[Rfam]
RNA sequence: UGCACUGUAUGGUAUCUGCACUCGGCUGUUUCCCCUAGCCGGGCUGUUCAUUACACAGUGCGAGAGGAACUCUGCAUCUGGCAUCGUUGGCCUCCGUGCCGUUCCUGUGCCUGUGGCCUGGUAUUUCUGCAGAGACAAGC
Dot-bracket structure: .((((((..........(((.(((((((.......))))).)).)))........))))))...(((((.((.(.....(((((......................)))))......).))..)))))............